This 410-nucleotide RNA sequence belongs to the Rfam family "Bacterial RNase P class A". The family's consensus secondary structure is taken from published work. Gene Ontology terms of the family: ribonuclease P activity, tRNA processing and dimeric ribonuclease P complex.
RNA sequence: UGAGUCAGUCGGGUGACCGCGUCUCGGGUUGUUCGCAAGGGCACUCGGGCCGAGGAAGGUCGGGACUCCAUAGAGCAGGGUGCUAGUGAGAGCUAGGUCGGAGUGAUCUGACGGUUAGGGCAGCAGAGAGCAGACCGCCGAUGGCCCAGCUACUCCUUCGGGGGCUGUUGGGAACAGGCAAGGGUGAAACGGUGCGGUAAGAGCGCACCAGCGUCGGGAGCGAUUUCGGCGGCUUGGUAACCCCCACCCGGAGCAAGGUCAAGCAGUGGUUCGGGCAGCUCGUCCGCCAACGUGAUUCCCUCGGGAGGAGCAGCGGCAGCCACGGGUAGACCGCAUAGAUGGAUGGUCACCAAACGGAACCCCCGCAAGGGGCCCGGGCACAGAAUCCCGCCUACAGACUGACUCACCGA
Numbered sequence: 001u002g003a004g005u006c007a008g009u010c011g012g013g014u015g016a017c018c019g020c021g022u023c024u025c026g027g028g029u030u031g032u033u034c035g036c037a038a039g040g041g042c043a044c045u046c047g048g049g050c051c052g053a054g055g056a057a058g059g060u061c062g063g064g065a066c067u068c069c070a071u072a073g074a075g076c077a078g079g080g081u082g083c084u085a086g087u088g089a090g091a092g093c094u095a096g097g098u099c100g101g102a103g104u105g106a107u108c109u110g111a112c113g114g115u116u117a118g119g120g121c122a123g124c125a126g127a128g129a130g131c132a133g134a135c136c137g138c139c140g141a142u143g144g145c146c147c148a149g150c151u152a153c154u155c156c157u158u159c160g161g162g163g164g165c166u167g168u169u170g171g172g173a174a175c176a177g178g179c180a181a182g183g184g185u186g187a188a189a190c191g192g193u194g195c196g197g198u199a200a201g202a203g204c205g206c207a208c209c210a211g212c213g214u215c216g217g218g219a220g221c222g223a224u225u226u227c228g229g230c231g232g233c234u235u236g237g238u239a240a241c242c243c244c245c246a247c248c249c250g251g252a253g254c255a256a257g258g259u260c261a262a263g264c265a266g267u268g269g270u271u272c273g274g275g276c277a278g279c280u281c282g283u284c285c286g287c288c289a290a291c292g293u294g295a296u297u298c299c300c301u302c303g304g305g306a307g308g309a310g311c312a313g314c315g316g317c318a319g320c321c322a323c324g325g326g327u328a329g330a331c332c333g334c335a336u337a338g339a340u341g342g343a344u345g346g347u348c349a350c351c352a353a354a355c356g357g358a359a360c361c362c363c364c365g366c367a368a369g370g371g372g373c374c375c376g377g378g379c380a381c382a383g384a385a386u387c388c389c390g391c392c393u394a395c396a397g398a399c400u401g402a403c404u405c406a407c408c409g410a
Stems, first nucleotide, its partner, number of pairs: 001406010011395001012351007020052002023049006057393003061390005066253004078249005083096005097112001099110004113244002118242002120238002135183002137179003142174001145171001191209006211233001212231008257332004266323006
Dot-bracket structure: ((((((((((((((((((.((.((((((...............)))))).))....[[[.[[[[[((((........((((((((((....)))))(.((((....)))).)((...((((.............(((((..(..(.........................)..)..)))..)).......((((((.......)))))).(((((((((....)))))))).)...))..)))))))))))))...((((.....((((((..............................................)))))).....))))............)))))))..................................]]]]]]]].).))))))))))....